[Rfam]
RNA sequence: CGCUCGGCUAGGGUAGCUCCCGAAAAGGCGGUCUUCCGGCCCGCUCUGCCGAUGUGUCUUUUGCCGGG
Numbered sequence: 001c002g003c004u005c006g007g008c009u010a011g012g013g014u015a016g017c018u019c020c021c022g023a024a025a026a027g028g029c030g031g032u033c034u035u036c037c038g039g040c041c042c043g044c045u046c047u048g049c050c051g052a053u054g055u056g057u058c059u060u061u062u063g064c065c066g067g068g
Stems, first nucleotide, its partner, number of pairs: 001056003005051004011021003027045005035068005
RNA: int-alpA RNA